[Rfam]
RNA: MIR159 microRNA precursor family
RNA sequence: GUGUUUGUGUUGGAGCUCUCUUCGCUCCAAGUCCGAAAGGAGGUGAUAACAGACCUUAGCGGCUACUUCAUGGAUACCUCUGCCUCCUUCUGUUGGGGUGCCAUGCACAAGAGAAGUCAGAGGUUUGCAUGAAUUUGGUGAUAAGGUCAAUUGCCUUUAAUCUUUUUGGUAUUGGAGUGAAGGGAGCGCCACCGAACCAUUAG
Dot-bracket structure: ............(.((((((..(((((((......(.......................((.(.(...((((....(.............................................)....))))...).).)).........................)......)))))))..)))))).)..............